[Rfam]
RNA sequence: AAUCAAUAUUGGCAAACCCGGUGAAAGCCGGGGACGCAAAGCCACGGGUCUAAAGCAUGAACAGUGCUAUGACGGCUGGGCUGCCGAA
Numbered sequence: 001a002a003u004c005a006a007u008a009u010u011g012g013c014a015a016a017c018c019c020g021g022u023g024a025a026a027g028c029c030g031g032g033g034a035c036g037c038a039a040a041g042c043c044a045c046g047g048g049u050c051u052a053a054a055g056c057a058u059g060a061a062c063a064g065u066g067c068u069a070u071g072a073c074g075g076c077u078g079g080g081c082u083g084c085c086g087a088a
Base pairs, nucleotide, nucleotide: 012037013036017032018031019030020029021028022027040082041081042080043079045078046077047076048073049072050071055067056066057065058064
RNA: c-di-GMP-I riboswitch aptamer
Organism: Bacillus sp. FJAT-27231